[Rfam]
RNA sequence: CACUAUCGCCCUUUUGGGCGUUUCCUCCCUAGACUCCGGCCGCCUUCGAGGCGGCCUCUUUUUUAUGUGAG
Numbered sequence: 001c002a003c004u005a006u007c008g009c010c011c012u013u014u015u016g017g018g019c020g021u022u023u024c025c026u027c028c029c030u031a032g033a034c035u036c037c038g039g040c041c042g043c044c045u046u047c048g049a050g051g052c053g054g055c056c057u058c059u060u061u062u063u064u065a066u067g068u069g070a071g
Base pairs, nucleotide, nucleotide: 008019009018010017011016038056039055040054041053042052043051044050045049
RNA: Makes More Granules Regulator RNA (mmgR)